[Rfam]
RNA sequence: AGGUACCCCCGUACACGCCGGUUCCUCCGCGCCCUCGCACCCACCUGAAGACUGCGCGCUACGUUUUGUUGGUA
Numbered sequence: 001a002g003g004u005a006c007c008c009c010c011g012u013a014c015a016c017g018c019c020g021g022u023u024c025c026u027c028c029g030c031g032c033c034c035u036c037g038c039a040c041c042c043a044c045c046u047g048a049a050g051a052c053u054g055c056g057c058g059c060u061a062c063g064u065u066u067u068g069u070u071g072g073u074a
Stems, first nucleotide, its partner, number of pairs: 003014004020033003024029001045072004050067002
RNA: Xanthomonas sRNA sX9